[Rfam]
RNA sequence: UCGUGCAGCCGGGGUGUUAGCGGUACCUUGUACCUGCAAUCCGCUAUAGCAGGGGUGAUAUUGCGCGGAGGGCACAGUUCUGUAGAGCUGCCCUUGAAAAGUGGCGUUGAUGCCUGGGUCUUACGCGACGGAAAUUCAUGAACCGUGUCAGGUCGGGAACGAAGCAGCACUAAGUGGAACCUUCCGGGUGCCGUGAGGGUGCCUGGGCUGAGUUAACUGUCGAGGUAACGUCUAUGGGGCCGGGUUCGAAGCGCAAUGCACGA
Numbered sequence: 001u002c003g004u005g006c007a008g009c010c011g012g013g014g015u016g017u018u019a020g021c022g023g024u025a026c027c028u029u030g031u032a033c034c035u036g037c038a039a040u041c042c043g044c045u046a047u048a049g050c051a052g053g054g055g056u057g058a059u060a061u062u063g064c065g066c067g068g069a070g071g072g073c074a075c076a077g078u079u080c081u082g083u084a085g086a087g088c089u090g091c092c093c094u095u096g097a098a099a100a101g102u103g104g105c106g107u108u109g110a111u112g113c114c115u116g117g118g119u120c121u122u123a124c125g126c127g128a129c130g131g132a133a134a135u136u137c138a139u140g141a142a143c144c145g146u147g148u149c150a151g152g153u154c155g156g157g158a159a160c161g162a163a164g165c166a167g168c169a170c171u172a173a174g175u176g177g178a179a180c181c182u183u184c185c186g187g188g189u190g191c192c193g194u195g196a197g198g199g200u201g202c203c204u205g206g207g208c209u210g211a212g213u214u215a216a217c218u219g220u221c222g223a224g225g226u227a228a229c230g231u232c233u234a235u236g237g238g239g240c241c242g243g244g245u246u247c248g249a250a251g252c253g254c255a256a257u258g259c260a261c262g263a
Stems, first nucleotide, its partner, number of pairs: 001263007008056003011029008033053005061256006070247004077240010089227002093224005101217002103214003112208008120197006126188001129186005135178005145170004153162003

Annotation: Shown here is a 263-nucleotide RNA from Lachnospiraceae bacterium 5_1_57FAA, a member of the family "Bacterial large signal recognition particle RNA". The signal recognition particle (SRP) is a universally conserved ribonucleoprotein involved in the co-translational targeting of proteins to membranes. The organism belongs to Lachnospiraceae, within Bacteria.